[Rfam]
RNA: DUF805 RNA
RNA sequence: AGAAAGUGGAGAAAAGAAACCACAAAAAAACUGGGUGUAUUCCGAAAGACCAUAAGAGUAGGAACAAAC
Numbered sequence: 001a002g003a004a005a006g007u008g009g010a011g012a013a014a015a016g017a018a019a020c021c022a023c024a025a026a027a028a029a030a031c032u033g034g035g036u037g038u039a040u041u042c043c044g045a046a047a048g049a050c051c052a053u054a055a056g057a058g059u060a061g062g063a064a065c066a067a068a069c
Base pairs, nucleotide, nucleotide: 006023007022008021009020034051035050036049041063042062